[Rfam]
RNA: Small Cajal body specific RNA 4
RNA sequence: ACCGGAGGACCAAGAAGGCUGAGUCUGAUGAAGCAAGACUUUGCUGAUACACUCCUCCUAGAAAAAGGGGUGGGGAGAGCAGCCCGUACUAGAGAAGAAUCACAGGGCUGACUGUCCUACCCGACAUUU
Numbered sequence: 001a002c003c004g005g006a007g008g009a010c011c012a013a014g015a016a017g018g019c020u021g022a023g024u025c026u027g028a029u030g031a032a033g034c035a036a037g038a039c040u041u042u043g044c045u046g047a048u049a050c051a052c053u054c055c056u057c058c059u060a061g062a063a064a065a066a067g068g069g070g071u072g073g074g075g076a077g078a079g080c081a082g083c084c085c086g087u088a089c090u091a092g093a094g095a096a097g098a099a100u101c102a103c104a105g106g107g108c109u110g111a112c113u114g115u116c117c118u119a120c121c122c123g124a125c126a127u128u129u
Base pairs, nucleotide, nucleotide: 002061004058005057006056007055008054009053017045018044019043021041022040023039024038025037026036068122069121070120071119078113079112080110081109082108083107084106085105090102092100